This 442-nucleotide sequence from Leptolyngbya sp. 'hensonii' belongs to the Rfam family "Bacterial RNase P class A". Gene Ontology terms of the family: dimeric ribonuclease P complex, tRNA processing and ribonuclease P activity. From the family's description: Ribonuclease P (RNase P) is a ubiquitous endoribonuclease, found in archaea, bacteria and eukarya as well as chloroplasts and mitochondria. By type it is a ribozyme. Taxonomically the source falls in Leptolyngbya (Bacteria, Cyanobacteriota, Cyanophyceae, Leptolyngbyales). Pairs were carried over by alignment from the consensus structure, which is taken from published work. It scores 250 bits against the family's covariance model.
RNA sequence: GGAGUAGGUGAGGUGGUUACGGGUUAGCCGGGCAGACACUGUCAGGCUGAUUCGAGGAAAGUCCGGGCUCCCGAAAGACCAGGCUUGCUGGGUAACGCCCAGUGCGGGUGACCGUGAGGAUAGUGCCACAGAAAUAUACCGCCAGUUUGUCAUGGGUCAUUUGUCAUGGGUCAUGGGUUCGGAACGGACCCCCACAAAUGACAAAUGACGGAUGACUAAUAUGGUAAGGGUGCAAAGGUGCGGUAAGAGCGCACCAGCGACAUCGAGAGGUGUCGGCUCGGUAAACCCCGGUUGGGAGCAAGGUCGGAGGAACCAGGGUUGGUCUUUUUCCAGUUCCGUGUUUGGGUACCGCUAGAGGCGAUUGGUAACAGUCGUCCCAGAUAGAUAACCACCCUCCCGGUUUUCCGGGAGAACAGAACCCGGCUUACUUCCUGCUCUUCCC
Numbered sequence: 001g002g003a004g005u006a007g008g009u010g011a012g013g014u015g016g017u018u019a020c021g022g023g024u025u026a027g028c029c030g031g032g033c034a035g036a037c038a039c040u041g042u043c044a045g046g047c048u049g050a051u052u053c054g055a056g057g058a059a060a061g062u063c064c065g066g067g068c069u070c071c072c073g074a075a076a077g078a079c080c081a082g083g084c085u086u087g088c089u090g091g092g093u094a095a096c097g098c099c100c101a102g103u104g105c106g107g108g109u110g111a112c113c114g115u116g117a118g119g120a121u122a123g124u125g126c127c128a129c130a131g132a133a134a135u136a137u138a139c140c141g142c143c144a145g146u147u148u149g150u151c152a153u154g155g156g157u158c159a160u161u162u163g164u165c166a167u168g169g170g171u172c173a174u175g176g177g178u179u180c181g182g183a184a185c186g187g188a189c190c191c192c193c194a195c196a197a198a199u200g201a202c203a204a205a206u207g208a209c210g211g212a213u214g215a216c217u218a219a220u221a222u223g224g225u226a227a228g229g230g231u232g233c234a235a236a237g238g239u240g241c242g243g244u245a246a247g248a249g250c251g252c253a254c255c256a257g258c259g260a261c262a263u264c265g266a267g268a269g270g271u272g273u274c275g276g277c278u279c280g281g282u283a284a285a286c287c288c289c290g291g292u293u294g295g296g297a298g299c300a301a302g303g304u305c306g307g308a309g310g311a312a313c314c315a316g317g318g319u320u321g322g323u324c325u326u327u328u329u330c331c332a333g334u335u336c337c338g339u340g341u342u343u344g345g346g347u348a349c350c351g352c353u354a355g356a357g358g359c360g361a362u363u364g365g366u367a368a369c370a371g372u373c374g375u376c377c378c379a380g381a382u383a384g385a386u387a388a389c390c391a392c393c394c395u396c397c398c399g400g401u402u403u404u405c406c407g408g409g410a411g412a413a414c415a416g417a418a419c420c421c422g423g424c425u426u427a428c429u430u431c432c433u434g435c436u437c438u439u440c441c442c
Base pairs, nucleotide, nucleotide: 001438002437003436004435005434006433007432008431010429012393013392014391015390016389017388018387020054021053022052023051024050025049026048027047028046059426060425061424063423064422065421066420067419068298069297070296071295077330078329082293083292084291086290087289088102089101090100091099092098103117104115105114106113107112118288119287123286124285125282126281127280139229140228141225142224143223144222147219148218149217237255238254239253240252241251242250257277258275259274260273261272262271263270264269302350303349310343311342312341313340321336322335324333325332357376358375359374360373361372362371363370364369